[Rfam]
RNA sequence: GUUACAGCUGUCUCUGAUUCGCUUGGUGCAGGUCGGGAACGGUAUCGCCGGUGGUACCUGAUCCCGCCUUGCAUCAAGUGAAUCGGAAACCGCCGUGAAG
Numbered sequence: 001g002u003u004a005c006a007g008c009u010g011u012c013u014c015u016g017a018u019u020c021g022c023u024u025g026g027u028g029c030a031g032g033u034c035g036g037g038a039a040c041g042g043u044a045u046c047g048c049c050g051g052u053g054g055u056a057c058c059u060g061a062u063c064c065c066g067c068c069u070u071g072c073a074u075c076a077a078g079u080g081a082a083u084c085g086g087a088a089a090c091c092g093c094c095g096u097g098a099a100g
Stems, first nucleotide, its partner, number of pairs: 013087002017083004023077010034066005040060002
The family of this 100-nucleotide RNA sequence from Helianthus annuus is "MIR168 microRNA precursor family". Gene Ontology terms of the family: miRNA-mediated post-transcriptional gene silencing and RISC complex. A search with the family's covariance model found it, with a score of 94 bits. The base pairs follow the family's consensus structure, which was predicted with WAR.